[Rfam]
RNA sequence: AGAAAGGAGUUAUAAUCAUUUUCUUGUUCUAUCAAGAGAGUGCUAUUGCUCCUUUCUUUCU
Numbered sequence: 001a002g003a004a005a006g007g008a009g010u011u012a013u014a015a016u017c018a019u020u021u022u023c024u025u026g027u028u029c030u031a032u033c034a035a036g037a038g039a040g041u042g043c044u045a046u047u048g049c050u051c052c053u054u055u056c057u058u059u060c061u
Stems, first nucleotide, its partner, number of pairs: 001057010012046003016042001017040001019038001022037005
Notes: Plastid-psbA-2 3UTR RNA: a 61-nucleotide RNA sequence from Nicotiana sylvestris. For this family Rfam cites "Retrograde signaling in plants: A critical review focusing on the GUN pathway and beyond" (Richter et al., Plant Commun, 2023). Pairs were carried over by alignment from the consensus structure, which was predicted with LocARNA. The family is grouped with related families in Rfam's "Plastid-psbA 3UTR RNA clan". From the family's description: Plastid psbA-2 is a non-coding RNA (ncRNA) present in plastids. It was identified in inverted repeat sequences in the 3 prime untranslate region (3UTR) of photosystem II quinone-binding protein (psbA).